[Rfam]
RNA sequence: CGACGUCAGUUCCACCUCCUGUCAAAAGUGAAUCAGGAGGUUUUUAUGACGUCGCAGAGAAAUGUGGGUCUUUUUCACCCAGAGAGCUUCAGGCUGCAGCCGAACUUUCAAAAGGCUUUCUGGUUUUGCAGGACCCAACAAAC
Numbered sequence: 001c002g003a004c005g006u007c008a009g010u011u012c013c014a015c016c017u018c019c020u021g022u023c024a025a026a027a028g029u030g031a032a033u034c035a036g037g038a039g040g041u042u043u044u045u046a047u048g049a050c051g052u053c054g055c056a057g058a059g060a061a062a063u064g065u066g067g068g069u070c071u072u073u074u075u076c077a078c079c080c081a082g083a084g085a086g087c088u089u090c091a092g093g094c095u096g097c098a099g100c101c102g103a104a105c106u107u108u109c110a111a112a113a114g115g116c117u118u119u120c121u122g123g124u125u126u127u128g129c130a131g132g133a134c135c136c137a138a139c140a141a142a143c
Stems, first nucleotide, its partner, number of pairs: 001054008014041005020035002067135006079123010093109001

The record is a 143-nucleotide RNA sequence from Channa argus, which matches "Small nucleolar RNA SNORA79" in Rfam. By type it is an H/ACA-box small nucleolar RNA. Rfam describes the family as follows. ACA65 (SNORA79) is a member of the H/ACA class of snoRNAs that guide the sites of modification of uridines to pseudouridines. This snoRNA was identified by computational screening and its expression in mouse experimentally verified by Northern blot and primer extension analysis. NCBI's taxonomy places the organism under Eukaryota, Chordata, Craniata, Actinopterygii, Channa.